Background: Shown here is a 108-nucleotide RNA from Solanum commersonii, a member of the family "mir-399 microRNA precursor family". It scores 62 bits against the family's covariance model. Lineage of the source: Eukaryota > Spermatophyta > Magnoliopsida > Solaneae > Solanum. Rfam 15.1 lists 2,396 matches to the family in 221 species.
Nucleotides: 108
Base pairs, nucleotide, nucleotide: 005104008101009100011098013096014095015094016093018091019090021088022087023086024085027082028081029080030079031078032077034076035075
Number, partner (000 for none) and nucleotide at each position: 001000g002000g003000a004000u005104g006000c007000a008101u009100u010000a011098c012000u013096g014095g015094g016093c017000u018091a019090a020000u021088c022087u023086u024085c025000u026000u027082u028081g029080g030079c031078a032077a033000a034076u035075a036000a037000a038000c039000c040000a041000c042000a043000u044000u045000u046000c047000a048000c049000u050000a051000u052000u053000a054000u055000u056000u057000g058000g059000u060000g061000c062000a063000a064000a065000u066000u067000u068000g069000g070000u071000c072000a073000u074000u075035u076034a077032u078031u079030g080029c081028c082027a083000a084000a085024g086023a087022a088021g089000a090019u091018u092000u093016g094015c095014c096013c097000c098011g099000u100009a101008a102000a103000u104005c105000a106000c107000u108000c